[Rfam]
RNA sequence: UUAUCGAGGCCGUCUUAUCGUUCUGCUCUCGCUUUAUGUUGAAGGCAGGAAGGAAAGUCCGGACAGCGCAGAGUACCGUACUUCCUAACGGGAAGGCAAAUAGUUGGCGACGGCUAUUUGACAGCAAGUGCAACAGAAAAUAAACUACCGUUUCUGAAUAAGAGAUGGAAAAGGUGAAAAGGUGGAGUAAAAGCCCACCGCUCGGCUGGCGACAGACGGGGCACGGUAAACCUUACGGGCUGAAAGACCAAAUAAGUGUCGAUUUUAGAGCUACUCGUUCUAAUUCUCUUCGGAGGUGUCGGCAUGGGUAGGUUGAUAGAUUUCAACGGCAACGUUGAAGCCAGAUAAAUGAUAAGAUUGUCAAGUUAAAUUGAUAAACAGAAUCCGGCUUAUAGGCCCGAUUACGCU
Numbered sequence: 001u002u003a004u005c006g007a008g009g010c011c012g013u014c015u016u017a018u019c020g021u022u023c024u025g026c027u028c029u030c031g032c033u034u035u036a037u038g039u040u041g042a043a044g045g046c047a048g049g050a051a052g053g054a055a056a057g058u059c060c061g062g063a064c065a066g067c068g069c070a071g072a073g074u075a076c077c078g079u080a081c082u083u084c085c086u087a088a089c090g091g092g093a094a095g096g097c098a099a100a101u102a103g104u105u106g107g108c109g110a111c112g113g114c115u116a117u118u119u120g121a122c123a124g125c126a127a128g129u130g131c132a133a134c135a136g137a138a139a140a141u142a143a144a145c146u147a148c149c150g151u152u153u154c155u156g157a158a159u160a161a162g163a164g165a166u167g168g169a170a171a172a173g174g175u176g177a178a179a180a181g182g183u184g185g186a187g188u189a190a191a192a193g194c195c196c197a198c199c200g201c202u203c204g205g206c207u208g209g210c211g212a213c214a215g216a217c218g219g220g221g222c223a224c225g226g227u228a229a230a231c232c233u234u235a236c237g238g239g240c241u242g243a244a245a246g247a248c249c250a251a252a253u254a255a256g257u258g259u260c261g262a263u264u265u266u267a268g269a270g271c272u273a274c275u276c277g278u279u280c281u282a283a284u285u286c287u288c289u290u291c292g293g294a295g296g297u298g299u300c301g302g303c304a305u306g307g308g309u310a311g312g313u314u315g316a317u318a319g320a321u322u323u324c325a326a327c328g329g330c331a332a333c334g335u336u337g338a339a340g341c342c343a344g345a346u347a348a349a350u351g352a353u354a355a356g357a358u359u360g361u362c363a364a365g366u367u368a369a370a371u372u373g374a375u376a377a378a379c380a381g382a383a384u385c386c387g388g389c390u391u392a393u394a395g396g397c398c399c400g401a402u403u404a405c406g407c408u
Base pairs, nucleotide, nucleotide: 001404003402004401005400006399008398009397010396011395012393013357014356015355016354017353018352019351021050022049023048024047025046026045027044029042030041031040055391056390057389059388060387061386062385063384064242065241066240067239073291076238077237078236079235080234081095082094083093084092085091096122097120098119099118100117101116102115103114104113105112106111123233124232128231129230130227131226145173146172148168149167150166151165152164153163154162155161181199182198183197184196185195200222201220202219203218204217206215207214208213246314247313248312249311256305257304258303259302260301261300286296287295321340322339323338324337325336326335327334328333

Bacterial RNase P class A: a 408-nucleotide sequence from Runella sp. SP2.
The match comes from Rfam's covariance-model search (248 bits).
Gene Ontology terms of the family: tRNA processing, dimeric ribonuclease P complex and ribonuclease P activity.
Rfam describes the family as follows. Ribonuclease P (RNase P) is a ubiquitous endoribonuclease, found in archaea, bacteria and eukarya as well as chloroplasts and mitochondria.
Rfam classes the family as a ribozyme.